[Rfam]
Nucleotides: 119
Base pairs, nucleotide, nucleotide: 002057003056004055005054006053015044016043017042018041019039020038021037022036023035024034025033075115076114077113080111081110092102093101094100
Number, partner (000 for none) and nucleotide at each position: 001000c002057g003056g004055a005054g006053g007000c008000a009000u010000g011000a012000g013000a014000a015044g016043g017042u018041g019039g020038a021037g022036c023035a024034g025033u026000c027000u028000c029000c030000u031000c032000u033025a034024c035023u036022g037021c038020u039019c040000u041018u042017a043016c044015u045000g046000g047000u048000a049000a050000u051000u052000u053006c054005c055004u056003c057002c058000c059000a060000g061000a062000u063000u064000a065000a066000u067000u068000g069000u070000g071000c072000a073000u074000g075115u076114g077113c078000u079000c080111g081110u082000u083000a084000g085000c086000c087000u088000c089000c090000c091000a092102u093101u094100c095000c096000u097000g098000u099000u100094g101093g102092g103000a104000a105000u106000c107000u108000a109000a110081a111080u112000u113077g114076c115075a116000u117000u118000u119000u